The family of this 190-nucleotide sequence from Crassaminicella thermophila is "Lysine riboswitch aptamer". Rfam links the family to the GO term lysine biosynthetic process. NCBI's taxonomy places the organism under Bacteria, Clostridia, Eubacteriales, Clostridiaceae, Crassaminicella.
[Rfam]
RNA sequence: UUGUGUCUUAGAGGUUGCGAUGUAUCAAGAGUACUAUGGUGGAAGUAUAGGGAACUGGUAAUACCAUAGGAAAGGGGUCAUCGCCGAAAUAUAUAGGUUUCCCUAAGCCUAUAUGUUGGGCCUAUGUUGAAUAAAUAUAGGACUGUCACUGUUAAAUUACCCAGUUUAUCAGUGAGGCGCUAUUUCACAC
Numbered sequence: 001u002u003g004u005g006u007c008u009u010a011g012a013g014g015u016u017g018c019g020a021u022g023u024a025u026c027a028a029g030a031g032u033a034c035u036a037u038g039g040u041g042g043a044a045g046u047a048u049a050g051g052g053a054a055c056u057g058g059u060a061a062u063a064c065c066a067u068a069g070g071a072a073a074g075g076g077g078u079c080a081u082c083g084c085c086g087a088a089a090u091a092u093a094u095a096g097g098u099u100u101c102c103c104u105a106a107g108c109c110u111a112u113a114u115g116u117u118g119g120g121c122c123u124a125u126g127u128u129g130a131a132u133a134a135a136u137a138u139a140g141g142a143c144u145g146u147c148a149c150u151g152u153u154a155a156a157u158u159a160c161c162c163a164g165u166u167u168a169u170c171a172g173u174g175a176g177g178c179g180c181u182a183u184u185u186c187a188c189a190c
Stems, first nucleotide, its partner, number of pairs: 009182003017084006024078003034069008088117012118144002121141008146175006